[Rfam]
Rfam assigns this 160-nucleotide RNA from Clostridiales bacterium CHKCI001 to the family "Clostridiales-1 RNA". Pairs were carried over by alignment from the consensus structure, which is taken from published work. The match comes from Rfam's covariance-model search (93 bits). NCBI's taxonomy places the organism under Bacteria, Bacillati, Bacillota, Clostridia, Eubacteriales.

RNA sequence: UAAAAGUCCUAGACAGCAGCCAUGAGCCAGACCGUAUUUAUAUGGGAUGGUUCAUGGCUAUUGGAUGGGCUAGCUUGUAUGAACAAAGAGUGGGAUCACUCGGAUUGUGAAUACAGGUGACGAUUGCGAGAGCACUAAAGUGCGGAGCAAUCGACUUUUA
Numbered sequence: 001u002a003a004a005a006g007u008c009c010u011a012g013a014c015a016g017c018a019g020c021c022a023u024g025a026g027c028c029a030g031a032c033c034g035u036a037u038u039u040a041u042a043u044g045g046g047a048u049g050g051u052u053c054a055u056g057g058c059u060a061u062u063g064g065a066u067g068g069g070c071u072a073g074c075u076u077g078u079a080u081g082a083a084c085a086a087a088g089a090g091u092g093g094g095a096u097c098a099c100u101c102g103g104a105u106u107g108u109g110a111a112u113a114c115a116g117g118u119g120a121c122g123a124u125u126g127c128g129a130g131a132g133c134a135c136u137a138a139a140g141u142g143c144g145g146a147g148c149a150a151u152c153g154a155c156u157u158u159u160a
Stems, first nucleotide, its partner, number of pairs: 001160007008069004015062002018059012032045005073118008083108004090101001092099001121153007132143004